[Rfam]
RNA sequence: CCCAGAGGUAUUGAUGGGUGUGAAAACGGGCACUGCUCCGGCAAGGCCAAUCGUUAUUACACCAACCCACGCAGAUGCGUGGGUUUUUUUU
Numbered sequence: 001c002c003c004a005g006a007g008g009u010a011u012u013g014a015u016g017g018g019u020g021u022g023a024a025a026a027c028g029g030g031c032a033c034u035g036c037u038c039c040g041g042c043a044a045g046g047c048c049a050a051u052c053g054u055u056a057u058u059a060c061a062c063c064a065a066c067c068c069a070c071g072c073a074g075a076u077g078c079g080u081g082g083g084u085u086u087u088u089u090u091u
Base pairs, nucleotide, nucleotide: 017063018062019061020060021053028048029047065084066083067082068081069080070079071078072077

Shown here is a 91-nucleotide RNA from Pantoea ananatis, a member of the family "OmrA-B family".
NCBI's taxonomy places the organism under Bacteria, Pseudomonadota, Gammaproteobacteria, Enterobacterales, Pantoea ananatis.
By type it is a small RNA.
The family has 23 seed sequences and 153 matches in Rfam 15.1.
The literature on the family includes a 2001 paper in Curr Biol by Argaman et al., "Novel small RNA-encoding genes in the intergenic regions of Escherichia coli".